RNA: Fluoride riboswitch aptamer (crcB RNA motif)
RNA sequence: UAAUACAUAGGCGAUGGAGUUCGCCUUUAAACGCUUGUAGCUAAUGACUCCUACUCUUUU
Numbered sequence: 001u002a003a004u005a006c007a008u009a010g011g012c013g014a015u016g017g018a019g020u021u022c023g024c025c026u027u028u029a030a031a032c033g034c035u036u037g038u039a040g041c042u043a044a045u046g047a048c049u050c051c052u053a054c055u056c057u058u059u060u
Base pairs, nucleotide, nucleotide: 010025011024012023013022016051017050018049019048020047021046033041034040035039